[Rfam]
RNA sequence: UGUGUGGUUUAGGUAGUUUCAUGUUGUUGGGAUCGGGUUUAAACUCGACAACAAGAAACUGCCUUAAUUACGUC
Numbered sequence: 001u002g003u004g005u006g007g008u009u010u011a012g013g014u015a016g017u018u019u020c021a022u023g024u025u026g027u028u029g030g031g032a033u034c035g036g037g038u039u040u041a042a043a044c045u046c047g048a049c050a051a052c053a054a055g056a057a058a059c060u061g062c063c064u065u066a067a068u069u070a071c072g073u074c
Stems, first nucleotide, its partner, number of pairs: 003072007011064009022053010
The family of this 74-nucleotide RNA sequence from Callorhinchus milii is "mir-196 microRNA precursor family".